[Rfam]
Background: A member of the RNA family "Pyrobaculum sRNA 210" from Pyrobaculum aerophilum, 58 nucleotides long. Rfam links the family to the GO term RNA processing. It is one of the family's seed sequences. Rfam's curators write: Non canonical pseudouridylation guide sRNA features.
RNA sequence: CGGGCUGGACUGCCGUGGUCGCGGCUGAAUGAAAAGCCCGCCCGCGGCCGAGUCUACA
Numbered sequence: 001c002g003g004g005c006u007g008g009a010c011u012g013c014c015g016u017g018g019u020c021g022c023g024g025c026u027g028a029a030u031g032a033a034a035a036g037c038c039c040g041c042c043c044g045c046g047g048c049c050g051a052g053u054c055u056a057c058a
Base pairs, nucleotide, nucleotide: 001040002039003038004037005036006035012025013024014023015022016021